[Rfam]
RNA sequence: CUCACACCUAUGUGUGUAGGACUCCAAAGGAUCACCAUUAAAUUUGACAAAGAUAUUUAGAAAAGUUAUCACAUGGGUGUAGGACUUGACUUUUCUAGAGAUCUGUGUCAAAUUUAAUGGCGAUCUUUUGAGGUUCUACACACAUAGGUGUAGG
Numbered sequence: 001c002u003c004a005c006a007c008c009u010a011u012g013u014g015u016g017u018a019g020g021a022c023u024c025c026a027a028a029g030g031a032u033c034a035c036c037a038u039u040a041a042a043u044u045u046g047a048c049a050a051a052g053a054u055a056u057u058u059a060g061a062a063a064a065g066u067u068a069u070c071a072c073a074u075g076g077g078u079g080u081a082g083g084a085c086u087u088g089a090c091u092u093u094u095c096u097a098g099a100g101a102u103c104u105g106u107g108u109c110a111a112a113u114u115u116a117a118u119g120g121c122g123a124u125c126u127u128u129u130g131a132g133g134u135u136c137u138a139c140a141c142a143c144a145u146a147g148g149u150g151u152a153g154g
Base pairs, nucleotide, nucleotide: 002153004151005150006149007148008147009146010145011144012143013142015140016139017138018137019136020135021134022133023132025130026129027128028127030125031124032123035120036119037118038117039116040115041114042113043112044111045110046109047108048107049106051104052103053102054101056099057098058097059096060095061094062093063092064091065090066089067088068087069082071080072079073078
RNA: MIR8565 microRNA precursor family
Organism: Amborella trichopoda